[Rfam]
RNA sequence: AUGGGGGAAACUGAAAACCCAAAAAAAGAGUAAGUG
Numbered sequence: 001a002u003g004g005g006g007g008a009a010a011c012u013g014a015a016a017a018c019c020c021a022a023a024a025a026a027a028g029a030g031u032a033a034g035u036g
Stems, first nucleotide, its partner, number of pairs: 002021004010035003
RNA: DUF805b RNA